Shown here is an 86-nucleotide RNA sequence from Olea europaea, a member of the family "Small nucleolar RNA R44/J54/Z268 family".
[Rfam]
RNA sequence: AAUGCAAGUGACGAUAAAACAGAUAGUGACUUCAAAACUCUUUUUAGAGUAUGAUGAUUUGUCGAUGGGAAUCUCUCCAAUGCAUU
Number, nucleotide and partner (000 for none) at each position: 001a000002a085003u084004g083005c082006a081007a000008g000009u000010g000011a000012c000013g000014a000015u000016a000017a000018a000019a000020c000021a000022g000023a000024u000025a000026g000027u000028g000029a000030c000031u000032u000033c000034a000035a000036a000037a000038c000039u000040c000041u000042u000043u000044u000045u000046a000047g000048a000049g000050u000051a000052u000053g000054a000055u000056g000057a000058u000059u000060u000061g000062u000063c000064g000065a000066u000067g000068g000069g000070a000071a000072u000073c000074u000075c000076u000077c000078c000079a000080a000081u006082g005083c004084a003085u002086u000
Rfam links the family to the GO terms RNA processing and nucleolus. The match comes from Rfam's covariance-model search (62 bits).